[Rfam]
RNA sequence: GGCAGGCUGCCACUCUUUCCCUGUUGCACUACUGUCAAACUUGUAGCUAGCAGUGCAAUAAUGAAAGGGCGUCGGUCUGCC
Number, nucleotide and partner (000 for none) at each position: 001g081002g080003c079004a000005g077006g076007c075008u074009g073010c000011c000012a000013c069014u068015c067016u066017u065018u064019c063020c000021c000022u060023g059024u058025u057026g056027c055028a054029c053030u052031a000032c000033u000034g000035u000036c000037a000038a000039a000040c000041u000042u000043g000044u000045a000046g000047c000048u000049a000050g000051c000052a030053g029054u028055g027056c026057a025058a024059u023060a022061a000062u000063g019064a018065a017066a016067g015068g014069g013070c000071g000072u000073c009074g008075g007076u006077c005078u000079g003080c002081c001

This 81-nucleotide RNA from Chelydra serpentina belongs to the Rfam family "mir-130 microRNA precursor family".
NCBI's taxonomy places the organism under Eukaryota, Eumetazoa, Testudinata, Durocryptodira, Chelydra.
Pairs were carried over by alignment from the consensus structure, which was predicted with PFOLD.
The literature on the family includes a 2002 paper in Curr Biol by Lagos-Quintana et al., "Identification of tissue-specific microRNAs from mouse".